[Rfam]
RNA sequence: CUUUCAUCAAAGGGGGUCACAGUAGGAGCGUUAAAUUUCGCGGUCCCGGUCGAACCCGUGUACUGAUGGGUCGUGAAUCCUGCU
Numbered sequence: 001c002u003u004u005c006a007u008c009a010a011a012g013g014g015g016g017u018c019a020c021a022g023u024a025g026g027a028g029c030g031u032u033a034a035a036u037u038u039c040g041c042g043g044u045c046c047c048g049g050u051c052g053a054a055c056c057c058g059u060g061u062a063c064u065g066a067u068g069g070g071u072c073g074u075g076a077a078u079c080c081u082g083c084u
Stems, first nucleotide, its partner, number of pairs: 013047006021084007028041003051073003055069001057068003
Mammalian CPEB3 ribozyme: an 84-nucleotide RNA sequence from Zootermopsis nevadensis. A search with the family's covariance model found it, with a score of 37 bits.